[Rfam]
RNA sequence: AAAUGCCUGGAAUGCAUGUUAUCUUAGCUAUGUCCAACCUACUUUACUAUAUAGGGAAUUCAAUGGUAUGCGGCUGUCGAGCCACCUUAGAGUGGAGGUCAAAAACAUAUCUUAGGAUACCCACCUGCUAGGUGCAGGUUUGGACAUACAAAGAGACGACAUUUUGGGCA
Numbered sequence: 001a002a003a004u005g006c007c008u009g010g011a012a013u014g015c016a017u018g019u020u021a022u023c024u025u026a027g028c029u030a031u032g033u034c035c036a037a038c039c040u041a042c043u044u045u046a047c048u049a050u051a052u053a054g055g056g057a058a059u060u061c062a063a064u065g066g067u068a069u070g071c072g073g074c075u076g077u078c079g080a081g082c083c084a085c086c087u088u089a090g091a092g093u094g095g096a097g098g099u100c101a102a103a104a105a106c107a108u109a110u111c112u113u114a115g116g117a118u119a120c121c122c123a124c125c126u127g128c129u130a131g132g133u134g135c136a137g138g139u140u141u142g143g144a145c146a147u148a149c150a151a152a153g154a155g156a157c158g159a160c161a162u163u164u165u166g167g168g169c170a
Stems, first nucleotide, its partner, number of pairs: 004170011017158003031146007038138002054122003058118004063113001065111006078098001082095004
Background:
A member of the RNA family "6S / SsrS RNA" from Sporomusa silvacetica, 170 nucleotides long. Pairs were carried over by alignment from the consensus structure, which is taken from published work. Taxonomically the source falls in Sporomusa silvacetica (Bacteria, Bacillati, Bacillota, Sporomusa). It is annotated as a non-coding RNA gene. Rfam describes the family as follows. E. coli 6S RNA was the first non coding RNA to be sequenced, but its function was unknown until recently. It consists of 184 nucleotides that fold into an extended hairpin structure with a large single-stranded internal bulge. The 6S RNA specifically associates with RNA polymerase holoenzyme containing the sigma70 specificity factor. This interaction represses expression from a sigma70-dependent promoter during stationary phase. 6S RNA homologs have recently been identified in most bacterial genomes. Many Gram-positive species have two copies of 6S RNA. In Bacillus subtilis, both copies appear to interact with RNA polymerase holoenzyme containing the housekeeping sigma factor and be expressed during different stages of growth. In many proteobacteria, 6S RNA may be processed from a transcript encoding homologs of the E. coli YgfA protein which is a putative 5-formyltetrahydrofolate cycloligase activity.